The family of this 106-nucleotide sequence from Muricoccus roseus is "TPP riboswitch aptamer (THI element)". Lineage of the source: Bacteria > Pseudomonadati > Pseudomonadota > Roseomonadaceae > Muricoccus. Rfam's curators write: Vitamin B(1) in its active form thiamin pyrophosphate (TPP) is an essential coenzyme that is synthesised by coupling of pyrimidine and thiazole moieties in bacteria. The previously detected thiamin-regulatory element, thi box was extended, resulting in a new, highly conserved RNA secondary structure, the THI element, which is widely distributed in eubacteria and also occurs in some archaea. Analysis of operon structures identified a large number of new candidate thiamin-regulated genes, mostly transporters, in various prokaryotic organisms. The THI element is a riboswitch that directly binds to TPP to regulate gene expression through a variety of mechanisms in archaea, bacteria and eukaryotes. through a variety of mechanisms in archaea, bacteria and eukaryotes. Tandem TPP riboswitches have been reported where both TPP riboswitches respond independently to TPP. The structure of TPP riboswitch has been reported for Escherichia coli and Arabidopsis thaliana. The match comes from Rfam's covariance-model search (69 bits).

RNA sequence: CCGGACACCGGGGGGAGCCCAUUUCGGGCUGAGAGGCGGGGCAACCCGCGACCCCUGGAACCUGACCCGGUUCGGACCGGCGUAGGGAUCGGUGCUUCAGACGGUG
Numbered sequence: 001c002c003g004g005a006c007a008c009c010g011g012g013g014g015g016a017g018c019c020c021a022u023u024u025c026g027g028g029c030u031g032a033g034a035g036g037c038g039g040g041g042c043a044a045c046c047c048g049c050g051a052c053c054c055c056u057g058g059a060a061c062c063u064g065a066c067c068c069g070g071u072u073c074g075g076a077c078c079g080g081c082g083u084a085g086g087g088a089u090c091g092g093u094g095c096u097u098c099a100g101a102c103g104g105u106g
Base pairs, nucleotide, nucleotide: 006094007093008092009091010090011055012054013053014052017029018028019027020026036049037048038047039046040045061086062085063084064083067080068079069078070077